A member of the RNA family "Small nucleolar RNA SNORA65" from Megalops atlanticus, 127 nucleotides long. By type it is an H/ACA-box small nucleolar RNA. The base pairs follow the family's consensus structure, which was predicted with RNAalifold. Gene Ontology terms of the family: nucleolus and RNA processing. Rfam's curators write: U65 belongs to the H/ACA class of snoRNAs which are thought to guide the sites of modification of uridines to pseudouridines. The family is grouped with related families in Rfam's "SNORA65 clan".
RNA sequence: CCCGCCACUAUGCCUGUCUGUGUGAGUGAUACGGUGUAUUCCAGUGGGGGCUGAGACUGACCCAGCUCUAGGAAGCAGGGCUGCUCAGAUAUAUGGGCAGCUCUGUGCCGAAAGGCCUGGAACACAC
Numbered sequence: 001c002c003c004g005c006c007a008c009u010a011u012g013c014c015u016g017u018c019u020g021u022g023u024g025a026g027u028g029a030u031a032c033g034g035u036g037u038a039u040u041c042c043a044g045u046g047g048g049g050g051c052u053g054a055g056a057c058u059g060a061c062c063c064a065g066c067u068c069u070a071g072g073a074a075g076c077a078g079g080g081c082u083g084c085u086c087a088g089a090u091a092u093a094u095g096g097g098c099a100g101c102u103c104u105g106u107g108c109c110g111a112a113a114g115g116c117c118u119g120g121a122a123c124a125c126a127c
Base pairs, nucleotide, nucleotide: 005047006046007045008044009043018034019033020032021031023028062120063119064118065117066115067114069112071109072108076105077104078103079102080101081100084097085096086095